[Rfam]
RNA: Group II catalytic intron D1-D4-3
RNA sequence: UCCGUGGUGACGCGGAAUCUGAAGGAAGCUGGAGGAAAAACACCGGUCCGAGGAACAUGAACCUCAUAUAAGGCUAGGUAUGAUGGAGUGAGUUUGCAUAACAAAACAAAGCUCUUUCUGUCGAAGGUCAUAUCGAGUAAAUGAGGCGGAUAGAUGGUGUGAAAGUGCAUGUA
Numbered sequence: 001u002c003c004g005u006g007g008u009g010a011c012g013c014g015g016a017a018u019c020u021g022a023a024g025g026a027a028g029c030u031g032g033a034g035g036a037a038a039a040a041c042a043c044c045g046g047u048c049c050g051a052g053g054a055a056c057a058u059g060a061a062c063c064u065c066a067u068a069u070a071a072g073g074c075u076a077g078g079u080a081u082g083a084u085g086g087a088g089u090g091a092g093u094u095u096g097c098a099u100a101a102c103a104a105a106a107c108a109a110a111g112c113u114c115u116u117u118c119u120g121u122c123g124a125a126g127g128u129c130a131u132a133u134c135g136a137g138u139a140a141a142u143g144a145g146g147c148g149g150a151u152a153g154a155u156g157g158u159g160u161g162a163a164a165g166u167g168c169a170u171g172u173a
Stems, first nucleotide, its partner, number of pairs: 001016006030171002035166001040160006046151005062146006073138003077134007086114004092107004